[Rfam]
RNA sequence: GGGCUGGCUUUAGCCCAGCGGUUCCUUCCAGUCUGGCUUCCCAAGGGGUCCCGUGGUUCGAGAACGGCGGGCGCUCUCCAGUCCUUUA
Numbered sequence: 001g002g003g004c005u006g007g008c009u010u011u012a013g014c015c016c017a018g019c020g021g022u023u024c025c026u027u028c029c030a031g032u033c034u035g036g037c038u039u040c041c042c043a044a045g046g047g048g049u050c051c052c053g054u055g056g057u058u059c060g061a062g063a064a065c066g067g068c069g070g071g072c073g074c075u076c077u078c079c080a081g082u083c084c085u086u087u088a
Stems, first nucleotide, its partner, number of pairs: 002083006013072004018068002021065001026062003030058001